Notes:
The family of this 86-nucleotide RNA sequence from Mikania micrantha is "Small nucleolar RNA SNORD24". On this family, see Hirose and Steitz, Proc Natl Acad Sci U S A 2001: "Position within the host intron is critical for efficient processing of box C/D snoRNAs in mammalian cells". The match comes from Rfam's covariance-model search (60 bits).

RNA sequence: UGCUGGUGAUGUAAGAUAGAUAUUUGCUACUCUUGAUGAGUUGAUACUCAUUUGAUGAUUCAUUAUCCACCAAGAUCUCUGAGGCA
Numbered sequence: 001u002g003c004u005g006g007u008g009a010u011g012u013a014a015g016a017u018a019g020a021u022a023u024u025u026g027c028u029a030c031u032c033u034u035g036a037u038g039a040g041u042u043g044a045u046a047c048u049c050a051u052u053u054g055a056u057g058a059u060u061c062a063u064u065a066u067c068c069a070c071c072a073a074g075a076u077c078u079c080u081g082a083g084g085c086a
Stems, first nucleotide, its partner, number of pairs: 001086004